The family of this 99-nucleotide RNA sequence from Weissella ceti is "Purine riboswitch aptamer". The organism belongs to Weissella, within Bacteria. The family's consensus secondary structure is taken from published work. Riboswitches are metabolite binding domains within certain messenger RNAs that serve as precision sensors for their corresponding targets. Its family is annotated with purine nucleobase biosynthetic process in the Gene Ontology.
[Rfam]
RNA sequence: ACAAAUCAAAUAACGCUUGAGAGUAUAAUAGUUGGAGAAUGGCCAACGAGUAUCUACCUUUGUCCCUAGACGAAGACUACUCCCUUAAACGAAAACACC
Numbered sequence: 001a002c003a004a005a006u007c008a009a010a011u012a013a014c015g016c017u018u019g020a021g022a023g024u025a026u027a028a029u030a031g032u033u034g035g036a037g038a039a040u041g042g043c044c045a046a047c048g049a050g051u052a053u054c055u056a057c058c059u060u061u062g063u064c065c066c067u068a069g070a071c072g073a074a075g076a077c078u079a080c081u082c083c084c085u086u087a088a089a090c091g092a093a094a095a096c097a098c099c
Base pairs, nucleotide, nucleotide: 019084021082022081023080024079025078029049031047032046033045034044035043058075059074060073061072062071063070064069